RNA sequence: ACGUUCGGGUAAUCGCUGCAAUUUUUUAAAUUGUAGAGGAAAGUCCAUGCUCACACAGGCUGAGAUGCCAGUAGUGUUCGUGCCUGGCGAAGACAUAAGCUAGGGCAACUUUAACAGUUGACGGCAGGGAAAAUACCUAAGUCUUUUUAAAGAUAGGGUAUGAAUACCUAUAAAAGUGCCACAGUGACGAAGUCUUCUCAGAAAUGAGAAGAGUGGAACGAGGUAAACCCCGCGAGUGAGAAACCCAAAUUAUGGUAGGGGCACUUUCCUAAAGGAAAUGAACUGAUAGGAAGGACAGGCGUAUUCGUCUGUAGAUAGAUGAUUACCACUAUGUACGAGGCAAUACAUUGCCGUUUGUAGUACGUAGAACAAAACAUGGCUUACAGAA
Numbered sequence: 001a002c003g004u005u006c007g008g009g010u011a012a013u014c015g016c017u018g019c020a021a022u023u024u025u026u027u028a029a030a031u032u033g034u035a036g037a038g039g040a041a042a043g044u045c046c047a048u049g050c051u052c053a054c055a056c057a058g059g060c061u062g063a064g065a066u067g068c069c070a071g072u073a074g075u076g077u078u079c080g081u082g083c084c085u086g087g088c089g090a091a092g093a094c095a096u097a098a099g100c101u102a103g104g105g106c107a108a109c110u111u112u113a114a115c116a117g118u119u120g121a122c123g124g125c126a127g128g129g130a131a132a133a134u135a136c137c138u139a140a141g142u143c144u145u146u147u148u149a150a151a152g153a154u155a156g157g158g159u160a161u162g163a164a165u166a167c168c169u170a171u172a173a174a175a176g177u178g179c180c181a182c183a184g185u186g187a188c189g190a191a192g193u194c195u196u197c198u199c200a201g202a203a204a205u206g207a208g209a210a211g212a213g214u215g216g217a218a219c220g221a222g223g224u225a226a227a228c229c230c231c232g233c234g235a236g237u238g239a240g241a242a243a244c245c246c247a248a249a250u251u252a253u254g255g256u257a258g259g260g261g262c263a264c265u266u267u268c269c270u271a272a273a274g275g276a277a278a279u280g281a282a283c284u285g286a287u288a289g290g291a292a293g294g295a296c297a298g299g300c301g302u303a304u305u306c307g308u309c310u311g312u313a314g315a316u317a318g319a320u321g322a323u324u325a326c327c328a329c330u331a332u333g334u335a336c337g338a339g340g341c342a343a344u345a346c347a348u349u350g351c352c353g354u355u356u357g358u359a360g361u362a363c364g365u366a367g368a369a370c371a372a373a374a375c376a377u378g379g380c381u382u383a384c385a386g387a388a
Stems, first nucleotide, its partner, number of pairs: 004388003007384001008327007016036006041382003045379005050240005055072002058069003078235005083104006105122001106120005123230002126169003134160004141154005176228002178224003193212008244260003264294007295312006329367008